RNA sequence: UAAGACGAUCCGGAGGGAUUAACGUUUUUCCUUCUAUUAUUACUGGCAAAAUAAUCUUGAAUUUUUGAGGGAUGACCUCACUUAAUCUCCAGUAGCAAUUUUGACCAGUAUGUAUGGGAGGAGUUAUGCGUCUGGAUCGUCUUAC
Numbered sequence: 001u002a003a004g005a006c007g008a009u010c011c012g013g014a015g016g017g018a019u020u021a022a023c024g025u026u027u028u029u030c031c032u033u034c035u036a037u038u039a040u041u042a043c044u045g046g047c048a049a050a051a052u053a054a055u056c057u058u059g060a061a062u063u064u065u066u067g068a069g070g071g072a073u074g075a076c077c078u079c080a081c082u083u084a085a086u087c088u089c090c091a092g093u094a095g096c097a098a099u100u101u102u103g104a105c106c107a108g109u110a111u112g113u114a115u116g117g118g119a120g121g122a123g124u125u126a127u128g129c130g131u132c133u134g135g136a137u138c139g140u141c142u143u144a145c
Stems, first nucleotide, its partner, number of pairs: 002143013016129001018127001021125003025046002029042001032039001055070006071082001073080002086121005092115003
Dot-bracket structure: .(((((((((((((.(.(..(((.((..(..(......)..)..))........((((((....))))))(.((....)).)...(((((.(((..................))).))))).))).).).)))))))))))))..
This 145-nucleotide RNA sequence from Dickeya dadantii belongs to the Rfam family "Yersinia sRNA 155(RyfD)". Rfam's curators write: The sRNA was identified by and is confirmed to have a stable secondary structure by using genome-wide structure probing at different temperatures. The function is unknown.